[Rfam]
RNA sequence: GGUCAAGAGAUCCGGUGGCAAGCCCUGGCUCGCCGGACGGCAACCCUCGUCGCUGUGGGGUGCUCCAGGUGACGACCGGGUGGCACCCGACCGGGUGGCCACAAGAGCGCGGC
Numbered sequence: 001g002g003u004c005a006a007g008a009g010a011u012c013c014g015g016u017g018g019c020a021a022g023c024c025c026u027g028g029c030u031c032g033c034c035g036g037a038c039g040g041c042a043a044c045c046c047u048c049g050u051c052g053c054u055g056u057g058g059g060g061u062g063c064u065c066c067a068g069g070u071g072a073c074g075a076c077c078g079g080g081u082g083g084c085a086c087c088c089g090a091c092c093g094g095g096u097g098g099c100c101a102c103a104a105g106a107g108c109g110c111g112g113c
Base pairs, nucleotide, nucleotide: 001077002076003075004074009038011037012036013035014034015033016032021030022029039064040063041062044060045059046058048055049054080102081101082100083099084097085096086095087094088093
Shown here is a 113-nucleotide RNA from Nakamurella endophytica, a member of the family "SAM (S-adenosyl methionine) riboswitch aptamer". Rfam's curators write: SAM-IV is a mRNA element that regulates gene expression via direct sensing of S-adenosylmethionine (SAM or AdoMet). SAM-IV riboswitches share conserved nucleotide positions with the previously described SAM-I riboswitches sequence analysis and molecular recognition experiments suggest that SAM-I and SAM-IV riboswitches share similar ligand binding sites, but have different scaffolds. Taxonomically the source falls in Nakamurella (Bacteria, Bacillati, Actinomycetota, Nakamurellales). The base pairs follow the family's consensus structure, which is taken from published work. The family has 40 seed sequences and 2,360 matches in Rfam 15.1.